Record summary: Shown here is a 132-nucleotide sequence from Eurypyga helias, a member of the family "Small nucleolar RNA SNORA58". About the family: ACA52 is a member of the H/ACA class of snoRNA that guide the sites of modification of uridines to pseudouridines. Clan: SNORA44 clan. Pairs were carried over by alignment from the consensus structure, which was predicted with PFOLD. Rfam 15.1 lists 471 matches to the family in 320 species.

RNA sequence: CUGCAUACCAGUAGACCUUAGCUGGUUCUUCUCGUGGCCAGCCGAGGGGGACGGUGCAUGCUACAAAGACCUGGGGUUGCUGUGGGCUGCGCUCAGCCUCGUGGCUGAUCGAACUGCAAUGCUCCGACAUAC
Numbered sequence: 001c002u003g004c005a006u007a008c009c010a011g012u013a014g015a016c017c018u019u020a021g022c023u024g025g026u027u028c029u030u031c032u033c034g035u036g037g038c039c040a041g042c043c044g045a046g047g048g049g050g051a052c053g054g055u056g057c058a059u060g061c062u063a064c065a066a067a068g069a070c071c072u073g074g075g076g077u078u079g080c081u082g083u084g085g086g087c088u089g090c091g092c093u094c095a096g097c098c099u100c101g102u103g104g105c106u107g108a109u110c111g112a113a114c115u116g117c118a119a120u121g122c123u124c125c126g127a128c129a130u131a132c
Base pairs, nucleotide, nucleotide: 003061004060005059006058008056016047017046018045019044021042022041023040024039073125074124075123076122078121081118082117083116093108094107095106096105097104